[Rfam]
Selenocysteine insertion sequence 1: a 63-nucleotide RNA from Coregonus sp. 'balchen'.
NCBI's taxonomy places the organism under Eukaryota, Gnathostomata, Actinopterygii, Protacanthopterygii, Coregonus.
A search with the family's covariance model found it, with a score of 38 bits.
On this family, see Walczak et al., RNA 1996: "A novel RNA structural motif in the selenocysteine insertion element of eukaryotic selenoprotein mRNAs".
RNA sequence: CAUCCACAAUGAAGGCAGGCGCAGAAACUACGCUCUAGUGGCGUCUGUCUGAUGUCCGGCUGG
Numbered sequence: 001c002a003u004c005c006a007c008a009a010u011g012a013a014g015g016c017a018g019g020c021g022c023a024g025a026a027a028c029u030a031c032g033c034u035c036u037a038g039u040g041g042c043g044u045c046u047g048u049c050u051g052a053u054g055u056c057c058g059g060c061u062g063g
Base pairs, nucleotide, nucleotide: 001063005059014049015048016047017046018045019044020043021042022041028038029037030036